Description: Shown here is a 131-nucleotide sequence from Micromonospora pisi, a member of the family "c-di-AMP riboswitch aptamer (ydaO/yuaA leader)". The base pairs follow the family's consensus structure.

[Rfam]
RNA sequence: CGACGACCGCCGCCCAAUCGCCAUCGUGCGAGCCGGGGAACCAGGUAGGUGGGGUGAAUCCGCACUCGCGGUAGGGGUAGUUCCGUCCCGAACCCGUCAGCUAACCCGGUCGGCGGCCGACGGGAGGAACG
Numbered sequence: 001c002g003a004c005g006a007c008c009g010c011c012g013c014c015c016a017a018u019c020g021c022c023a024u025c026g027u028g029c030g031a032g033c034c035g036g037g038g039a040a041c042c043a044g045g046u047a048g049g050u051g052g053g054g055u056g057a058a059u060c061c062g063c064a065c066u067c068g069c070g071g072u073a074g075g076g077g078u079a080g081u082u083c084c085g086u087c088c089c090g091a092a093c094c095c096g097u098c099a100g101c102u103a104a105c106c107c108g109g110u111c112g113g114c115g116g117c118c119g120a121c122g123g124g125a126g127g128a129a130c131g
Base pairs, nucleotide, nucleotide: 011115012114013113014112018031019030020029032110033109034108035107036106037105042051043050052095053094054093060071061070062069063068074089075088076087077086

It scores 89 bits against the family's covariance model.